Shown here is a 61-nucleotide RNA from Protea cynaroides, a member of the family "Plastid-psbA-4 3UTR RNA".
Its Rfam clan is "Plastid-psbA 3UTR RNA clan".
Plastid psbA-4 is a non-coding RNA (ncRNA) present in plastids. It was identified in inverted repeat sequences in the 3 prime untranslate region (3UTR) of photosystem II quinone-binding protein (psbA).
The family's consensus secondary structure was predicted with LocARNA.
RNA sequence: UUGUUGAAGGAGCAAUACUGCAUUUCUUGUUUUAUUAAGAGGGUUGUUAUUGCUCCUUCAU
Numbered sequence: 001u002u003g004u005u006g007a008a009g010g011a012g013c014a015a016u017a018c019u020g021c022a023u024u025u026c027u028u029g030u031u032u033u034a035u036u037a038a039g040a041g042g043g044u045u046g047u048u049a050u051u052g053c054u055c056c057u058u059c060a061u
Base pairs, nucleotide, nucleotide: 006059007058008057009056010055011054012053013052014051015050016049017048024041025040026039027038028037029036